[Rfam]
RNA sequence: GAAAGGCCGACACAAUGUUGGCGGCUGGAUGCAUAUACCUGCAUCCCAUUUAAG
Numbered sequence: 001g002a003a004a005g006g007c008c009g010a011c012a013c014a015a016u017g018u019u020g021g022c023g024g025c026u027g028g029a030u031g032c033a034u035a036u037a038c039c040u041g042c043a044u045c046c047c048a049u050u051u052a053a054g
Stems, first nucleotide, its partner, number of pairs: 005026005011020002027046007
Dot-bracket structure: ....(((((.((......)).)))))(((((((......)))))))........
Overview
The family of this 54-nucleotide RNA from [Eubacterium] cellulosolvens is "S4-Clostridia ribosomal protein leader". Pairs were carried over by alignment from the consensus structure, which is taken from published work. Lineage of the source: Bacteria > Bacillati > Eubacteriaceae > Eubacterium > [Eubacterium] cellulosolvens. Clan: Ribosomal Protein S4 Leader clan.